[Rfam]
RNA sequence: UGGUGCCCAACGUGGGGCUGGAUACUGGGGGACAACGUGAGGGUCCGACGACAAAGGAAGAAGGGGUGCGCACCCUAUCAAACAAAAGUUCGGAGACGUCACGGUAGCCUGCUGUGACCGAGCCAACAGGUAACUUGGUCGUUCAAUCAUGGGGCAAGAAUUGAGUCAGCAUCAGAAAUAUGUAAUAUAGUUAAAAGAAGCUUUACAGGCAAGAGGAGUAAAGGUUACAAUUGAGGAUUUAUUUCAUUUCUUUGAUUUUGUGAAAGACAUCUGCCCAU
Dot-bracket structure: .....(((...(((........)))..))).....(((.........))).......................................(((....((.(((((.......)))))..))......).)).........(.((((....))))).......(((((.................................)).))).......((((((...(((((.........))))).......)))))).........(..(.(....).)..)
Numbered sequence: 001u002g003g004u005g006c007c008c009a010a011c012g013u014g015g016g017g018c019u020g021g022a023u024a025c026u027g028g029g030g031g032a033c034a035a036c037g038u039g040a041g042g043g044u045c046c047g048a049c050g051a052c053a054a055a056g057g058a059a060g061a062a063g064g065g066g067u068g069c070g071c072a073c074c075c076u077a078u079c080a081a082a083c084a085a086a087a088g089u090u091c092g093g094a095g096a097c098g099u100c101a102c103g104g105u106a107g108c109c110u111g112c113u114g115u116g117a118c119c120g121a122g123c124c125a126a127c128a129g130g131u132a133a134c135u136u137g138g139u140c141g142u143u144c145a146a147u148c149a150u151g152g153g154g155c156a157a158g159a160a161u162u163g164a165g166u167c168a169g170c171a172u173c174a175g176a177a178a179u180a181u182g183u184a185a186u187a188u189a190g191u192u193a194a195a196a197g198a199a200g201c202u203u204u205a206c207a208g209g210c211a212a213g214a215g216g217a218g219u220a221a222a223g224g225u226u227a228c229a230a231u232u233g234a235g236g237a238u239u240u241a242u243u244u245c246a247u248u249u250c251u252u253u254g255a256u257u258u259u260g261u262g263a264a265a266g267a268c269a270u271c272u273g274c275c276c277a278u
Stems, first nucleotide, its partner, number of pairs: 006030003012025003036050003090130002092127001097120002100116005140154001142153004162205003165201002213253006222240005263278001266275001268273001
A member of the RNA family "Mason-Pfizer monkey virus packaging signal" from Nannospalax galili, 278 nucleotides long. This family represents a group of sequences that are related to the Mason-Pfizer monkey virus (MPMV) packaging signal. The packaging signal is located in the 5' UTR and is required for specific RNA encapsidation. A reference for the family is Harrison et al. (1995), "Secondary structure model of the Mason-Pfizer monkey virus 5' leader sequence: identification of a structural motif common to a variety of retroviruses", J Virol. Pairs were carried over by alignment from the consensus structure, which was predicted with PFOLD.